[Rfam]
RNA sequence: AUGAUUAUAUCGUGAGAUAACAUUUGUUAACCGAAGAAGCAAUGCUAUAGUUCCACAGCUAUAUCAGAAACUUUCAGGUACCAGGAGCGAUAUAAGACG
Numbered sequence: 001a002u003g004a005u006u007a008u009a010u011c012g013u014g015a016g017a018u019a020a021c022a023u024u025u026g027u028u029a030a031c032c033g034a035a036g037a038a039g040c041a042a043u044g045c046u047a048u049a050g051u052u053c054c055a056c057a058g059c060u061a062u063a064u065c066a067g068a069a070a071c072u073u074u075c076a077g078g079u080a081c082c083a084g085g086a087g088c089g090a091u092a093u094a095a096g097a098c099g
Stems, first nucleotide, its partner, number of pairs: 006094008019028003030079003033075002037073003043066002
The family of this 99-nucleotide RNA from Clostridium carboxidivorans is "Glycine riboswitch aptamer". It scores 50 bits against the family's covariance model.